[Rfam]
RNA sequence: GUACUCCCUUCGUCCCAUAAUAUAAGAACGUUUUUGACACUAGUGUAGUGCCAAAAACGUUCUUAUAUUAUGGGGCACAGGGAGUAC
Numbered sequence: 001g002u003a004c005u006c007c008c009u010u011c012g013u014c015c016c017a018u019a020a021u022a023u024a025a026g027a028a029c030g031u032u033u034u035u036g037a038c039a040c041u042a043g044u045g046u047a048g049u050g051c052c053a054a055a056a057a058c059g060u061u062c063u064u065a066u067a068u069u070a071u072g073g074g075g076c077a078c079a080g081g082g083a084g085u086a087c
Base pairs, nucleotide, nucleotide: 003085004084005083007081008080009079013075014074015073016072017071019069020068021067022066023065024064025063026062027061028060029059030058031057032056033055034054035053036052038050039049040048041047
RNA: MIR1120/MIR1122 microRNA precursor family